Rfam assigns this 77-nucleotide RNA from Olea europaea to the family "Small nucleolar RNA SNORD18".
RNA sequence: GAGAUAUGAUGAAUACCCAAUUUGGUCCGUGUUUCUGAAUAAACCGUGACAGAUAAACCCUACCAAUCUCUGAUCUC
Numbered sequence: 001g002a003g004a005u006a007u008g009a010u011g012a013a014u015a016c017c018c019a020a021u022u023u024g025g026u027c028c029g030u031g032u033u034u035c036u037g038a039a040u041a042a043a044c045c046g047u048g049a050c051a052g053a054u055a056a057a058c059c060c061u062a063c064c065a066a067u068c069u070c071u072g073a074u075c076u077c
Stems, first nucleotide, its partner, number of pairs: 001077004

Gene Ontology terms of the family: nucleolus and RNA processing. Clan: SNORD18 clan. Pairs were carried over by alignment from the consensus structure, which was predicted with PFOLD.